[Rfam]
RNA sequence: UAAAAGUAACUUUAAACACACUGCCCCAAAGCUGUUUUUAGCCACAGCGUUUUUCAAGCGUAUUUUUAUUUUUGAACUUUCAGAAAUUACCAUCUAAAACAAGAGUUUAGAUGGUAGGCACGAGUGAAUUCGAAUCACCGACCCCCACCA
Number, nucleotide and partner (000 for none) at each position: 001u000002a000003a000004a000005a000006g000007u000008a000009a000010c000011u000012u000013u000014a000015a000016a000017c000018a000019c000020a000021c000022u000023g000024c049025c000026c047027c000028a000029a000030a000031g042032c041033u040034g000035u000036u000037u000038u000039u000040a033041g032042c031043c000044a000045c000046a000047g026048c000049g024050u000051u000052u000053u000054u000055c000056a000057a000058g000059c000060g000061u000062a000063u074064u000065u000066u000067u000068a000069u000070u000071u000072u000073u000074g063075a000076a000077c000078u000079u000080u000081c000082a000083g000084a000085a000086a000087u000088u000089a000090c000091c000092a000093u000094c000095u000096a000097a000098a000099a000100c000101a000102a000103g000104a000105g000106u000107u000108u000109a000110g000111a000112u147113g146114g145115u000116a000117g142118g000119c000120a000121c140122g139123a000124g138125u137126g136127a135128a000129u000130u000131c000132g000133a000134a000135u127136c126137a125138c124139c122140g121141a000142c117143c000144c000145c114146c113147a112148c000149c000150a000
This 150-nucleotide RNA from Methyloprofundus sedimenti belongs to the Rfam family "Bacterial antisense RNA HPnc0260".
NCBI's taxonomy places the organism under Bacteria, Pseudomonadota, Gammaproteobacteria, Methylococcales, Methyloprofundus.
A search with the family's covariance model found it, with a score of 62 bits.
The family's consensus secondary structure was predicted with CMfinder.